[Rfam]
RNA: MIR2619 microRNA precursor family
RNA sequence: AUCCAGCCCCCUAAGUACCGCCCCUAUUGCAGUUUUGGUCCCCCAGAUCAAUUUUGACCAAGUCAAUGUUGACGUGAACGCCACAUGUGUAAUUUUUUAUUUUUUAUAAAUAUAUUUUUAUAUUUUUAAUUAAAAAAAUAAAAAAAUAGUUAUUUUAAUUUUUUAUUAUAUUUUAAUAAUUAAAAAAAAUUACACAUGUGGCGUCCACGUCAGCAUUGAUUUGGUCAAAAUUGGUCUGGGGGACCAAAACUGCAAAAGAGGCAGUACUUAGGGGGCUGAAU
Numbered sequence: 001a002u003c004c005a006g007c008c009c010c011c012u013a014a015g016u017a018c019c020g021c022c023c024c025u026a027u028u029g030c031a032g033u034u035u036u037g038g039u040c041c042c043c044c045a046g047a048u049c050a051a052u053u054u055u056g057a058c059c060a061a062g063u064c065a066a067u068g069u070u071g072a073c074g075u076g077a078a079c080g081c082c083a084c085a086u087g088u089g090u091a092a093u094u095u096u097u098u099a100u101u102u103u104u105u106a107u108a109a110a111u112a113u114a115u116u117u118u119u120a121u122a123u124u125u126u127u128a129a130u131u132a133a134a135a136a137a138a139u140a141a142a143a144a145a146a147u148a149g150u151u152a153u154u155u156u157a158a159u160u161u162u163u164u165a166u167u168a169u170a171u172u173u174u175a176a177u178a179a180u181u182a183a184a185a186a187a188a189a190u191u192a193c194a195c196a197u198g199u200g201g202c203g204u205c206c207a208c209g210u211c212a213g214c215a216u217u218g219a220u221u222u223g224g225u226c227a228a229a230a231u232u233g234g235u236c237u238g239g240g241g242g243a244c245c246a247a248a249a250c251u252g253c254a255a256a257a258g259a260g261g262c263a264g265u266a267c268u269u270a271g272g273g274g275g276c277u278g279a280a281u
Stems, first nucleotide, its partner, number of pairs: 001281002004278005012270007020262003024258002027255019072210002075207002078204021